Shown here is a 175-nucleotide RNA sequence from Enterococcus aquimarinus, a member of the family "M-box riboswitch aptamer (ykoK leader)". Taxonomically the source falls in Enterococcus (Bacteria, Bacillota, Lactobacillales, Enterococcaceae). The literature on the family includes a 2004 paper in Proc Natl Acad Sci U S A by Barrick et al., "New RNA motifs suggest an expanded scope for riboswitches in bacterial genetic control". Rfam's curators write: M-box riboswitch, also know as ykoK leader is described as a metaloregulatory RNA that sense divalent metals and function as a genetic control element of genes related to divalent metal transport in bacteria. It was first reported upstream of the B.subtilis ykoK gene and genes with related functions in other bacteria. A search with the family's covariance model found it, with a score of 118 bits.

RNA sequence: UAAAAUAAUUGUUAGGUGAGGCUCCUAUAAAGAAAUAAGCUGCUGCCGCGAAAGUAUCGAGAGAUUCUUAGUUGGUUGAACAGGGAUGGUCGCGAAGGUCAUCCAUAAUGUAGCUGGUAAGUAUCGUUUACUUAUCUACGCUUUAUAGUGCUAAAGCUCAACGAUGACUAUGGUG
Number, nucleotide and partner (000 for none) at each position: 001u000002a000003a000004a000005a171006u170007a169008a000009u167010u166011g162012u161013u096014a000015g158016g157017u156018g000019a000020g152021g151022c150023u000024c000025c148026u147027a146028u145029a144030a143031a142032g141033a000034a000035a000036u000037a000038a000039g114040c113041u112042g111043c110044u000045g076046c075047c074048g073049c000050g000051a000052a000053a000054g000055u000056a065057u064058c063059g000060a000061g000062a000063g058064a057065u056066u000067c000068u000069u000070a000071g000072u000073u048074g047075g046076u045077u000078g000079a000080a000081c000082a000083g000084g104085g103086a102087u000088g000089g099090u098091c097092g000093c000094g000095a000096a013097g091098g090099u089100c000101a000102u086103c085104c084105a000106u000107a000108a000109u000110g043111u042112a041113g040114c039115u000116g136117g135118u134119a133120a132121g131122u130123a000124u000125c000126g000127u000128u000129u000130a122131c121132u120133u119134a118135u117136c116137u000138a000139c000140g000141c032142u031143u030144u029145a028146u027147a026148g025149u000150g022151c021152u020153a000154a000155a000156g017157c016158u015159c000160a000161a012162c011163g000164a000165u000166g010167a009168c000169u007170a006171u005172g000173g000174u000175g000